RNA sequence: CACUCAUCGAGACCGGCUGAGGGACAGGCCCUUUGAAGCCGGGGCAACCUGCGGAAUGUUUCCGCAACGGUGCUAAUUCCUGCGGAGGCGCUUUGCGGCGCCAACCGGAAGAUGGGCG
Numbered sequence: 001c002a003c004u005c006a007u008c009g010a011g012a013c014c015g016g017c018u019g020a021g022g023g024a025c026a027g028g029c030c031c032u033u034u035g036a037a038g039c040c041g042g043g044g045c046a047a048c049c050u051g052c053g054g055a056a057u058g059u060u061u062c063c064g065c066a067a068c069g070g071u072g073c074u075a076a077u078u079c080c081u082g083c084g085g086a087g088g089c090g091c092u093u094u095g096c097g098g099c100g101c102c103a104a105c106c107g108g109a110a111g112a113u114g115g116g117c118g
Stems, first nucleotide, its partner, number of pairs: 001118001003116006013042005021031003025082004043074004048070002050066004078110001083107003088102001
Record summary:
The family of this 118-nucleotide RNA sequence from Rhodanobacter sp. MP7CTX1 is "SAM riboswitch aptamer (S box leader)". Lineage of the source: Bacteria > Pseudomonadota > Lysobacterales > Rhodanobacteraceae > Rhodanobacter. The match comes from Rfam's covariance-model search (80 bits). The SAM riboswitch is found upstream of a number of genes which code for proteins involved in methionine or cysteine biosynthesis in Gram-positive bacteria.